[Rfam]
RNA sequence: CUUAGGAGCCAAUAAUGUUUUUAUUCAAAAUGUCUGAACCUGUCUGAAGCAUCCCAGUGAUGCAAAAUGUUGUACUGAGGCUUCUCUGCUA
Numbered sequence: 001c002u003u004a005g006g007a008g009c010c011a012a013u014a015a016u017g018u019u020u021u022u023a024u025u026c027a028a029a030a031u032g033u034c035u036g037a038a039c040c041u042g043u044c045u046g047a048a049g050c051a052u053c054c055c056a057g058u059g060a061u062g063c064a065a066a067a068u069g070u071u072g073u074a075c076u077g078a079g080g081c082u083u084c085u086c087u088g089c090u091a
Stems, first nucleotide, its partner, number of pairs: 004085007
Rfam assigns this 91-nucleotide RNA sequence to the family "Small nucleolar RNA SNORD91 family".
The sequence is in the family's curated seed alignment.
The family has 24 seed sequences and 977 matches in Rfam 15.1.
The family's RNA type in Rfam is C/D-box small nucleolar RNA.